[Rfam]
RNA sequence: GAACCAGGCACGGGGUGCCUGUCCACCGUGGACAGGCUGAGAACACACCCGUUGAACCUGCUCUAGCUCGUACUAGCGAAGGGAUGGCCGUUGCAUGGCUG
Numbered sequence: 001g002a003a004c005c006a007g008g009c010a011c012g013g014g015g016u017g018c019c020u021g022u023c024c025a026c027c028g029u030g031g032a033c034a035g036g037c038u039g040a041g042a043a044c045a046c047a048c049c050c051g052u053u054g055a056a057c058c059u060g061c062u063c064u065a066g067c068u069c070g071u072a073c074u075a076g077c078g079a080a081g082g083g084a085u086g087g088c089c090g091u092u093g094c095a096u097g098g099c100u101g
Base pairs, nucleotide, nucleotide: 007088009086010085011051012050013049014048016045017037018036019035020034021033022032023031024030057082058081059080063076064075065074066073
This 101-nucleotide RNA from Corynebacterium efficiens belongs to the Rfam family "TPP riboswitch aptamer (THI element)". The match comes from Rfam's covariance-model search (61 bits). NCBI's taxonomy places the organism under Bacteria, Actinomycetes, Mycobacteriales, Corynebacterium, Corynebacterium efficiens. Its family is annotated with thiamine pyrophosphate binding in the Gene Ontology.